Rfam assigns this 87-nucleotide RNA from Cnephaeus nilssonii to the family "mir-9195 microRNA precursor family".
RNA sequence: AGAGGCCCUCCGCGGGUGGGGUGGGACGCUUGCCUCGUCACUGGGGCGACGAAGCAAGCAUUCCGCCAGGCCGCUCACGCUGCCUGC
Numbered sequence: 001a002g003a004g005g006c007c008c009u010c011c012g013c014g015g016g017u018g019g020g021g022u023g024g025g026a027c028g029c030u031u032g033c034c035u036c037g038u039c040a041c042u043g044g045g046g047c048g049a050c051g052a053a054g055c056a057a058g059c060a061u062u063c064c065g066c067c068a069g070g071c072c073g074c075u076c077a078c079g080c081u082g083c084c085u086g087c
Stems, first nucleotide, its partner, number of pairs: 004084003012074004017069001020067007028059006037050003041046001
Lineage of the source: Eukaryota > Bilateria > Chordata > Eutheria > Cnephaeus.